The record is a 178-nucleotide sequence from Alicyclobacillus acidocaldarius, which matches "6S / SsrS RNA" in Rfam. It is annotated as a non-coding RNA gene. For this family Rfam cites "A highly conserved 6S RNA structure is required for regulation of transcription" (Trotochaud and Wassarman, Nat Struct Mol Biol, 2005). The base pairs follow the family's consensus structure, which is taken from published work. NCBI's taxonomy places the organism under Bacteria, Bacilli, Alicyclobacillus, Alicyclobacillus acidocaldarius, Alicyclobacillus acidocaldarius subsp. acidocaldarius.
[Rfam]
RNA sequence: AAGCUCCUGUGAUGUUCGUGGGGCAGUUUUGGUUUUCAUCCACGCAAGACCUACGGGAAUCCGUGUCCGUCUGCGGAUGCCAUGCCUCGGCGUUGUGGACGGUUGAAACCGGCGGUAGGAUACCCACCUUGGAGAUGGGGAUGCAAAACCGAUUGUCCCACGGCAGAACGGGGUUACA
Numbered sequence: 001a002a003g004c005u006c007c008u009g010u011g012a013u014g015u016u017c018g019u020g021g022g023g024c025a026g027u028u029u030u031g032g033u034u035u036u037c038a039u040c041c042a043c044g045c046a047a048g049a050c051c052u053a054c055g056g057g058a059a060u061c062c063g064u065g066u067c068c069g070u071c072u073g074c075g076g077a078u079g080c081c082a083u084g085c086c087u088c089g090g091c092g093u094u095g096u097g098g099a100c101g102g103u104u105g106a107a108a109c110c111g112g113c114g115g116u117a118g119g120a121u122a123c124c125c126a127c128c129u130u131g132g133a134g135a136u137g138g139g140g141a142u143g144c145a146a147a148a149c150c151g152a153u154u155g156u157c158c159c160a161c162g163g164c165a166g167a168a169c170g171g172g173g174u175u176a177c178a
Base pairs, nucleotide, nucleotide: 003175005173006172007171008170009169010168013165014164015163017162018161019160033147034146037143038142039141040140041139055125056124057123059121060120061119062118066115068114069113070112071111073109080102081101085098086097088095089094